Record summary: Shown here is a 114-nucleotide RNA sequence from Takifugu rubripes, a member of the family "Small nucleolar RNA SNORD67". The source organism's lineage runs through Eukaryota, Neopterygii, Euteleosteomorpha, Eurypterygia and Takifugu. Rfam 15.1 lists 781 matches to the family in 618 species. For this family Rfam cites "RNomics: an experimental approach that identifies 201 candidates for novel, small, non-messenger RNAs in mouse" (Huttenhofer et al., EMBO J, 2001). By type it is a C/D-box small nucleolar RNA. Rfam's curators put it in the seed alignment. About the family: snoRNA HBII-166 belongs to the C/D family of snoRNAs.
[Rfam]
RNA sequence: UUUGAGAGUGAUGAGUUGCACGAAUCAGUUGGGGUGUUUGAUGCAGUGGCAACAACACUCCAAUCCGAUCCAACCUGAGGACACGCACAGUGCACAGGGGCCAUCUGACUCAAC
Numbered sequence: 001u002u003u004g005a006g007a008g009u010g011a012u013g014a015g016u017u018g019c020a021c022g023a024a025u026c027a028g029u030u031g032g033g034g035u036g037u038u039u040g041a042u043g044c045a046g047u048g049g050c051a052a053c054a055a056c057a058c059u060c061c062a063a064u065c066c067g068a069u070c071c072a073a074c075c076u077g078a079g080g081a082c083a084c085g086c087a088c089a090g091u092g093c094a095c096a097g098g099g100g101c102c103a104u105c106u107g108a109c110u111c112a113a114c
Base pairs, nucleotide, nucleotide: 006111007110008109025068026067028065029063030062031061032060034058035057036056040053042051043050044049